The family of this 323-nucleotide sequence from Ephemeroptericola cinctiostellae is "Bacterial RNase P class A".
The source organism's lineage runs through Bacteria, Pseudomonadati, Betaproteobacteria, Burkholderiales and Ephemeroptericola.
RNA sequence: CAUGCCUGCUGGGCAAUCGCUGCUGCGCCUUAAAACGCGGGGGAGGAAAGUCCGGACUUCACAGAGCGCAGUAGCGGCUAACGGCCGUCCGCCGAAAUCAUAAGGCGAGGAACAGGGCCACAGAGACGAGCGUAUUAAGUUACGGUGAAACGCGGUAACCUCUACUGGAAGCAACACCAAAUAGGCACACGUUGAGGCGGCUCGCUGAGUGUGCGGGUAGGUGGCUAGAGCCUUGCGGUAACGCAAGGUCGAGAGGAAUGAUUGUCAUUGUGGGUGAUUCGUCACCCCGAUCACAGAAUCCGGCUUACAGGCGGGCAUGGACU
Numbered sequence: 001c002a003u004g005c006c007u008g009c010u011g012g013g014c015a016a017u018c019g020c021u022g023c024u025g026c027g028c029c030u031u032a033a034a035a036c037g038c039g040g041g042g043g044a045g046g047a048a049a050g051u052c053c054g055g056a057c058u059u060c061a062c063a064g065a066g067c068g069c070a071g072u073a074g075c076g077g078c079u080a081a082c083g084g085c086c087g088u089c090c091g092c093c094g095a096a097a098u099c100a101u102a103a104g105g106c107g108a109g110g111a112a113c114a115g116g117g118c119c120a121c122a123g124a125g126a127c128g129a130g131c132g133u134a135u136u137a138a139g140u141u142a143c144g145g146u147g148a149a150a151c152g153c154g155g156u157a158a159c160c161u162c163u164a165c166u167g168g169a170a171g172c173a174a175c176a177c178c179a180a181a182u183a184g185g186c187a188c189a190c191g192u193u194g195a196g197g198c199g200g201c202u203c204g205c206u207g208a209g210u211g212u213g214c215g216g217g218u219a220g221g222u223g224g225c226u227a228g229a230g231c232c233u234u235g236c237g238g239u240a241a242c243g244c245a246a247g248g249u250c251g252a253g254a255g256g257a258a259u260g261a262u263u264g265u266c267a268u269u270g271u272g273g274g275u276g277a278u279u280c281g282u283c284a285c286c287c288c289g290a291u292c293a294c295a296g297a298a299u300c301c302g303g304c305u306u307a308c309a310g311g312c313g314g315g316c317a318u319g320g321a322c323u
Base pairs, nucleotide, nucleotide: 001319002318003317004316005315006314007313008312009311010310011308012266013265014264015263016262017261018260020043021042023040024039025038026037027036048306049305050304052303053302054301055300056299057171058170059169060168064203065202066201067200069167070166071165072164073163074088075087076086077085078084089109090107091106092105093104110162111161115160116159117156118155119154131144132143133142134141175223176222177221178220185214186213187212188211189210190209196206197205198204230249231248232247233246234245235244236243237242
A search with the family's covariance model found it, with a score of 226 bits.